[Rfam]
RNA sequence: GUCAGAGACUGGGUCUUUGGGGGCAAGGUGAGUCCUCAAUAUGUUCAACUGGCCUACAAAGUCCCAGUUUCCGGC
Dot-bracket structure: ..(.((((.((((.(((((.((((.((.((...............)).)).)))).))))).)))).)))).)..
Background
mir-193 microRNA precursor family: a 75-nucleotide sequence from Labrus bergylta. The match comes from Rfam's covariance-model search (74 bits). Lineage of the source: Eukaryota > Clupeocephala > Eurypterygia > Euacanthomorphacea > Labrus.